[Rfam]
RNA sequence: GCGUGUUUGGCCGAGCGGUCUAAGGCGCUGCGUUCAGGUCGCAGUCCAGUUCUCUGGGCGCAGGUUCGAAUCCUGCAGCACGCA
Numbered sequence: 001g002c003g004u005g006u007u008u009g010g011c012c013g014a015g016c017g018g019u020c021u022a023a024g025g026c027g028c029u030g031c032g033u034u035c036a037g038g039u040c041g042c043a044g045u046c047c048a049g050u051u052c053u054c055u056g057g058g059c060g061c062a063g064g065u066u067c068g069a070a071u072c073c074u075g076c077a078g079c080a081c082g083c084a
Stems, first nucleotide, its partner, number of pairs: 001083007010026003028044005060076005